Shown here is a 61-nucleotide RNA from Illicium floridanum, a member of the family "Plastid-psbA-1 3UTR RNA".
The family's consensus secondary structure was predicted with LocARNA.
Rfam classes the family as a cis-regulatory element.
The source organism's lineage runs through Eukaryota, Streptophytina, Euphyllophyta, Schisandraceae and Illicium.

RNA sequence: ACUCAAUUGAAGGAACAAUACCCAAUUUCUUGUUUUAUCAAGAAGUUGGGUAUUGUUCCUU
Numbered sequence: 001a002c003u004c005a006a007u008u009g010a011a012g013g014a015a016c017a018a019u020a021c022c023c024a025a026u027u028u029c030u031u032g033u034u035u036u037a038u039c040a041a042g043a044a045g046u047u048g049g050g051u052a053u054u055g056u057u058c059c060u061u
Stems, first nucleotide, its partner, number of pairs: 010061012023048003027044005
Dot-bracket structure: .........((((((((((((.(((.(((((........))))).))).))))))))))))